[Rfam]
RNA sequence: CUAUCCUGUUACACAUAAUCAUUAAUAAUGAACUACACUAACACAGAAGGGUAAAUUAAGUCCCCAUAAAAUCCAGAGAAGAAAUGGUAAAACUCCUCUUUGGACCCUGUCUGGAGUCACAGUU
Number, nucleotide and partner (000 for none) at each position: 001c000002u053003a052004u051005c050006c049007u048008g000009u046010u045011a000012c000013a000014c000015a000016u040017a039018a000019u037020c000021a034022u000023u000024a000025a000026u000027a000028a000029u000030g000031a000032a000033c000034u021035a000036c000037a019038c000039u017040a016041a000042c000043a000044c000045a010046g009047a000048a007049g006050g005051g004052u003053a002054a000055a000056u000057u000058a000059a000060g118061u000062c116063c000064c114065c113066a112067u000068a000069a000070a000071a000072u000073c103074c102075a101076g100077a099078g098079a097080a000081g095082a094083a000084a000085u092086g000087g000088u000089a000090a000091a000092a085093c000094u082095c081096c000097u079098c078099u077100u076101u075102g074103g073104a000105c000106c000107c000108u000109g000110u000111c000112u066113g065114g064115a000116g062117u000118c060119a000120c000121a000122g000123u000124u000